The family of this 75-nucleotide sequence from Coffea arabica is "Plastid-ycf2 5UTR RNA". Pairs were carried over by alignment from the consensus structure, which was predicted with LocARNA. Taxonomically the source falls in Coffea (Eukaryota, Spermatophyta, Magnoliopsida, Mesangiospermae). On this family, see Richter et al., Plant Commun 2023: "Retrograde signaling in plants: A critical review focusing on the GUN pathway and beyond". The family has 204 seed sequences and 3,521 matches in Rfam 15.1.

Nucleotides: 075
Stems, first nucleotide, its partner, number of pairs: 003075002010026005041068002044066006051059001
Number, partner (000 for none) and nucleotide at each position: 001000a002000u003075g004074c005000a006000c007000a008000c009000a010026g011025u012024a013023g014022g015000a016000a017000u018000u019000g020000a021000a022014c023013c024012u025011a026010c027000g028000a029000a030000u031000u032000c033000g034000c035000c036000a037000a038000u039000u040000u041068u042067g043000a044066g045065u046064u047063g048062g049061g050000c051059g052000c053000u054000u055000u056000a057000a058000c059051c060000a061049u062048u063047c064046a065045g066044c067042c068041a069000u070000a071000g072000a073000c074004g075003c